[Rfam]
RNA sequence: GAGAAAGCCUUAUCUGCGAUAGACAUAACAAUUGUUAGGGAGAAAGAACACUCCUAAAGAUAAGUGGGAUAUAUAAUACUGAUAAUAUUAUA
Dot-bracket structure: ........((((((.......................(((((........)))))...)))))).......(((((((.......)))))))
Numbered sequence: 001g002a003g004a005a006a007g008c009c010u011u012a013u014c015u016g017c018g019a020u021a022g023a024c025a026u027a028a029c030a031a032u033u034g035u036u037a038g039g040g041a042g043a044a045a046g047a048a049c050a051c052u053c054c055u056a057a058a059g060a061u062a063a064g065u066g067g068g069a070u071a072u073a074u075a076a077u078a079c080u081g082a083u084a085a086u087a088u089u090a091u092a
Stems, first nucleotide, its partner, number of pairs: 009064006038055005072092007
PGK RNA: a 92-nucleotide RNA. By type it is a cis-regulatory element.